Shown here is a 77-nucleotide sequence from Echeneis naucrates, a member of the family "mir-92 microRNA precursor family".
[Rfam]
RNA sequence: CUUUCUGUGCAGGUGGGGAUUAGUAGCAAUGCUAUUAACCUGACAGUAUUGCACUUGUCCCGGCCUGUGUAGGAACG
Numbered sequence: 001c002u003u004u005c006u007g008u009g010c011a012g013g014u015g016g017g018g019a020u021u022a023g024u025a026g027c028a029a030u031g032c033u034a035u036u037a038a039c040c041u042g043a044c045a046g047u048a049u050u051g052c053a054c055u056u057g058u059c060c061c062g063g064c065c066u067g068u069g070u071a072g073g074a075a076c077g
Stems, first nucleotide, its partner, number of pairs: 004073003009068006016061005022055003026052008

The family's consensus secondary structure was predicted with PFOLD. A search with the family's covariance model found it, with a score of 76 bits. This family represents the microRNA precursor mir-92. Human miR-92 has two predicted hairpin precursor sequences: mir-92-1 on chromosome 13 and mir-92-2 on chromosome X. miR-92 has also been cloned from mouse embryonic stem cells. The mature sequence is excised from the 3' arm of the hairpin.